[Rfam]
Nucleotides: 113
Base pairs, nucleotide, nucleotide: 001109002108003107004106005105006104007103008102010101011100014097015096016092018090019089020088044074047071048070
Number, partner (000 for none) and nucleotide at each position: 001109g002108g003107c004106u005105g006104g007103u008102c009000c010101a011100a012000a013000a014097g015096u016092a017000g018090u019089g020088a021000a022000u023000u024000a025000u026000u027000u028000c029000a030000a031000u032000u033000a034000a035000u036000u037000g038000u039000u040000c041000a042000c043000a044074g045000c046000c047071a048070g049000u050000u051000a052000c053000a054000g055000a056000u057000c058000a059000a060000a061000c062000c063000c064000u065000u066000u067000g068000u069000u070048c071047u072000u073000c074044u075000c076000u077000u078000u079000c080000c081000c082000u083000c084000c085000u086000u087000c088020u089019u090018a091000a092016u093000a094000c095000u096015g097014c098000a099000c100011u101010u102008g103007a104006c105005u106004a107003g108002c109001c110000a111000a112000a113000a

Overview:
This 113-nucleotide sequence from Cebus imitator belongs to the Rfam family "Y RNA". The literature on the family includes a 2000 paper in Nucleic Acids Res by Teunissen et al., "Conserved features of Y RNAs: a comparison of experimentally derived secondary structures". Rfam 15.1 lists 26,986 matches to the family in 650 species. The match comes from Rfam's covariance-model search (56 bits). It is annotated as a non-coding RNA gene.